[Rfam]
RNA sequence: ACAACAACAAUAACAACGCUGAAAACCCACAAUAAAAACAAGACGUAUCGACUCCAGCACAACAAAAACAACAAGGCGGAGGCGCAGCUAACUGAUUCUUUUGGAGAGGAGUUGCCUUCGGGCUUGCCCCGCAACCAGGCUGAGAACAAUAAAACUGCCCCAAGGCAGCGCCUGAACUGGUUGGGUCACGGAAUGAUCAUGGCAUCGUCAGCGUCCAAAGCAAUCCGUUUGCUAUUGGUUCCCCCUCUGGGAACCUUCCCAACAGGCCAAGGCUUCGAGGGACGGGCCGGACAACAAAAACAACAGGCCCGAUACCAUAACAAAAACAAAGCACGCACCUACUUGGGGGGGAGCUUCGGCUCCCCCAGUAGCUUUGACACCCCGCCCCCGCUUCCUACACCAUCU
Numbered sequence: 001a002c003a004a005c006a007a008c009a010a011u012a013a014c015a016a017c018g019c020u021g022a023a024a025a026c027c028c029a030c031a032a033u034a035a036a037a038a039c040a041a042g043a044c045g046u047a048u049c050g051a052c053u054c055c056a057g058c059a060c061a062a063c064a065a066a067a068a069c070a071a072c073a074a075g076g077c078g079g080a081g082g083c084g085c086a087g088c089u090a091a092c093u094g095a096u097u098c099u100u101u102u103g104g105a106g107a108g109g110a111g112u113u114g115c116c117u118u119c120g121g122g123c124u125u126g127c128c129c130c131g132c133a134a135c136c137a138g139g140c141u142g143a144g145a146a147c148a149a150u151a152a153a154a155c156u157g158c159c160c161c162a163a164g165g166c167a168g169c170g171c172c173u174g175a176a177c178u179g180g181u182u183g184g185g186u187c188a189c190g191g192a193a194u195g196a197u198c199a200u201g202g203c204a205u206c207g208u209c210a211g212c213g214u215c216c217a218a219a220g221c222a223a224u225c226c227g228u229u230u231g232c233u234a235u236u237g238g239u240u241c242c243c244c245c246u247c248u249g250g251g252a253a254c255c256u257u258c259c260c261a262a263c264a265g266g267c268c269a270a271g272g273c274u275u276c277g278a279g280g281g282a283c284g285g286g287c288c289g290g291a292c293a294a295c296a297a298a299a300a301c302a303a304c305a306g307g308c309c310c311g312a313u314a315c316c317a318u319a320a321c322a323a324a325a326a327c328a329a330a331g332c333a334c335g336c337a338c339c340u341a342c343u344u345g346g347g348g349g350g351g352a353g354c355u356u357c358g359g360c361u362c363c364c365c366c367a368g369u370a371g372c373u374u375u376g377a378c379a380c381c382c383c384g385c386c387c388c389c390g391c392u393u394c395c396u397a398c399a400c401c402a403u404c405u
Stems, first nucleotide, its partner, number of pairs: 049084002052081004099220005113213003132183007155168005238254005279388003283384002285310002288307001329374004346369001347366008
A member of the RNA family "Pseudomonas sRNA CrcZ" from Pseudomonas indica, 405 nucleotides long.
Pairs were carried over by alignment from the consensus structure, which was predicted with WAR.
The organism belongs to Pseudomonas, within Bacteria.
A reference for the family is Livny et al. (2006), "Identification of 17 Pseudomonas aeruginosa sRNAs and prediction of sRNA-encoding genes in 10 diverse pathogens using the bioinformatic tool sRNAPredict2", Nucleic Acids Res.
The family's RNA type in Rfam is small RNA.
A search with the family's covariance model found it, with a score of 354 bits.
Gene Ontology term of the family: carbon catabolite repression of transcription.